U4 spliceosomal RNA: a 140-nucleotide RNA from Operophtera brumata. Its Rfam clan is "U4 clan". The base pairs follow the family's consensus structure, which is taken from published work. By type it is a spliceosomal small nuclear RNA. NCBI's taxonomy places the organism under Eukaryota, Protostomia, Altocrustacea, Panorpida, Operophtera. U4 small nuclear RNA (U4 snRNA) is a component of the major U2-dependent spliceosome.
[Rfam]
RNA sequence: AACUUUGCGCAGAGGCAAUAUCGUAACCAAUGAGGUUAAUCCGAGGUGCGAUUAUUGCUAGUUGAAAACUUUACCAAUACCCCGCCAAGUGGACGUGAAAUACCGUCCGCUACGGCAAUUUUUGUACAGCCUUCACCGGC
Number, nucleotide and partner (000 for none) at each position: 001a000002a000003c000004u000005u000006u000007g000008c000009g000010c000011a000012g000013a000014g000015g000016c000017a000018a000019u000020a052021u051022c050023g049024u048025a000026a047027c046028c045029a000030a000031u000032g000033a000034g042035g041036u000037u000038a000039a000040u000041c035042c034043g000044a000045g028046g027047u026048g024049c023050g022051a021052u020053u000054a000055u000056u000057g000058c000059u000060a000061g000062u000063u000064g000065a000066a000067a000068a000069c000070u000071u000072u000073a000074c000075c000076a000077a000078u000079a000080c000081c000082c000083c000084g116085c115086c114087a000088a111089g110090u109091g108092g107093a106094c105095g104096u000097g000098a000099a000100a000101u000102a000103c000104c095105g094106u093107c092108c091109g090110c089111u088112a000113c000114g086115g085116c084117a000118a000119u000120u000121u000122u000123u000124g000125u000126a000127c000128a000129g140130c139131c138132u000133u000134c000135a000136c000137c000138g131139g130140c129